[Rfam]
RNA sequence: CUGCCGGGCCUUGCCUUGACUGGGUUUCGGAGUCUCUUUAGACUUACGGACCCUAAAUUUGGCAGGGCGGACCGCUCUGCCAUUUUGUUUAUGUCGAAAGACAACAGUGGAGCUAGUAGA
Numbered sequence: 001c002u003g004c005c006g007g008g009c010c011u012u013g014c015c016u017u018g019a020c021u022g023g024g025u026u027u028c029g030g031a032g033u034c035u036c037u038u039u040a041g042a043c044u045u046a047c048g049g050a051c052c053c054u055a056a057a058u059u060u061g062g063c064a065g066g067g068c069g070g071a072c073c074g075c076u077c078u079g080c081c082a083u084u085u086u087g088u089u090u091a092u093g094u095c096g097a098a099a100g101a102c103a104a105c106a107g108u109g110g111a112g113c114u115a116g117u118a119g120a
Base pairs, nucleotide, nucleotide: 004018006016007015008014009013022053023052024051026049027048030045031044034041035040060082061081062080063079064078065077066076067075068074093102094101095100

Pseudomonas rpsL leader: a 120-nucleotide RNA from Azotobacter vinelandii. The sequence is in the family's curated seed alignment. The base pairs follow the family's consensus structure, which is taken from published work.